[Rfam]
RNA sequence: AAAGUCCCACUCGGCCAAGGGUAGCCACCAGCCGGUAGCGAGUGUUGCGUGGUGCCGGGUAACCGUCACUGCGAAGCGUACACAGCGAGUGGAUAGGCCGCGUGAUUGAGCAUCGAAAUCCUCGGAUCACGGUCGCCGACAGCGUUAUGGAUCUGGAAGGCAAUACGAACCCGUUGUACUGGCUUGGCGGGAGAGGGCCGUCGGUGUCAUAGAGCA
Numbered sequence: 001a002a003a004g005u006c007c008c009a010c011u012c013g014g015c016c017a018a019g020g021g022u023a024g025c026c027a028c029c030a031g032c033c034g035g036u037a038g039c040g041a042g043u044g045u046u047g048c049g050u051g052g053u054g055c056c057g058g059g060u061a062a063c064c065g066u067c068a069c070u071g072c073g074a075a076g077c078g079u080a081c082a083c084a085g086c087g088a089g090u091g092g093a094u095a096g097g098c099c100g101c102g103u104g105a106u107u108g109a110g111c112a113u114c115g116a117a118a119u120c121c122u123c124g125g126a127u128c129a130c131g132g133u134c135g136c137c138g139a140c141a142g143c144g145u146u147a148u149g150g151a152u153c154u155g156g157a158a159g160g161c162a163a164u165a166c167g168a169a170c171c172c173g174u175u176g177u178a179c180u181g182g183c184u185u186g187g188c189g190g191g192a193g194a195g196g197g198c199c200g201u202c203g204g205u206g207u208c209a210u211a212g213a214g215c216a
Base pairs, nucleotide, nucleotide: 012034013033014032015031019029020028023184024183025182036088038086039085042083043082044081045080046078047077048073049072050071051070052069053068054067056065057064058063108208110207111206112205113204114203115202129201130200131199132198133197134196135161136160137159140155141154142153166195170191171190172189173188174187175186
RNA: Group II catalytic intron D1-D4-6
Organism: Halomonas beimenensis